[Rfam]
RNA: Small nucleolar RNA SNORD11B
Organism: Stegastes partitus
RNA sequence: UGAUGGUGGUGAUGAUGACGACAGUUGUCUCAACCCUGAAACAGUCCAUGUGGGUUCUUAGUCACUACCUCAUCUGAACAGUCA
Numbered sequence: 001u002g003a004u005g006g007u008g009g010u011g012a013u014g015a016u017g018a019c020g021a022c023a024g025u026u027g028u029c030u031c032a033a034c035c036c037u038g039a040a041a042c043a044g045u046c047c048a049u050g051u052g053g054g055u056u057c058u059u060a061g062u063c064a065c066u067a068c069c070u071c072a073u074c075u076g077a078a079c080a081g082u083c084a
Base pairs, nucleotide, nucleotide: 002083003082004081006079007078